U2 spliceosomal RNA: a 182-nucleotide RNA from Myotis davidii.
U2 is a small nuclear RNA (snRNA) component of the spliceosome (involved in pre-mRNA splicing).
The family has 208 seed sequences and 71,512 matches in Rfam 15.1.
By type it is a spliceosomal small nuclear RNA.
Taxonomically the source falls in Myotis (Eukaryota, Teleostomi, Eutheria, Chiroptera).

[Rfam]
RNA sequence: GUCGCUUCUCGGCCUUUUGGCUAAGAUCAAGUGUAGUAUCAGUUUAAUACCUGAUACGUCUUCUAUCCGAGGGCAAUAUAUUAAAUGGAUUUUUGGAGCAGGAGUUGGAAUAGGAGCUUGCUCCGUCCACUCCACGCAUUGACCCGGUAUUGCAGUACUUCUGGUGCACCAAAAUAAACCCC
Numbered sequence: 001g002u003c004g005c006u007u008c009u010c011g012g013c014c015u016u017u018u019g020g021c022u023a024a025g026a027u028c029a030a031g032u033g034u035a036g037u038a039u040c041a042g043u044u045u046a047a048u049a050c051c052u053g054a055u056a057c058g059u060c061u062u063c064u065a066u067c068c069g070a071g072g073g074c075a076a077u078a079u080a081u082u083a084a085a086u087g088g089a090u091u092u093u094u095g096g097a098g099c100a101g102g103a104g105u106u107g108g109a110a111u112a113g114g115a116g117c118u119u120g121c122u123c124c125g126u127c128c129a130c131u132c133c134a135c136g137c138a139u140u141g142a143c144c145c146g147g148u149a150u151u152g153c154a155g156u157a158c159u160u161c162u163g164g165u166g167c168a169c170c171a172a173a174a175u176a177a178a179c180c181c182c
Stems, first nucleotide, its partner, number of pairs: 007026003011022004037056006058074006101133005107127002113124004136175001139172003144164004